Guanidine-I riboswitch aptamer: a 103-nucleotide RNA from Bacillus subtilis. It is one of the family's seed sequences. This family represents a conserved RNA structure found upstream of the ykkC and yxkD genes in Bacillus subtilis and related genes in other bacteria. The function of this family is unclear although it has been suggested that it may function to switch on efflux pumps and detoxification systems in response to harmful environmental molecules.
RNA sequence: ACAGUGGUUUUCUAGGGUUCCGCAAUGCAAAUUGGACUGUGACCGAGAGAAAACACAUAGCAGCUUGGCUGUUAUGACACGGUGGGAUAAAAGCCCAGGAGUU
Numbered sequence: 001a002c003a004g005u006g007g008u009u010u011u012c013u014a015g016g017g018u019u020c021c022g023c024a025a026u027g028c029a030a031a032u033u034g035g036a037c038u039g040u041g042a043c044c045g046a047g048a049g050a051a052a053a054c055a056c057a058u059a060g061c062a063g064c065u066u067g068g069c070u071g072u073u074a075u076g077a078c079a080c081g082g083u084g085g086g087a088u089a090a091a092a093g094c095c096c097a098g099g100a101g102u103u
Base pairs, nucleotide, nucleotide: 007054008053009052010051011050012049015044016043020041021039022037023034024033025032026031056076057075058074059073060072061071062070078098080101084096085095086094

Rfam links the family to the GO term regulation of gene expression.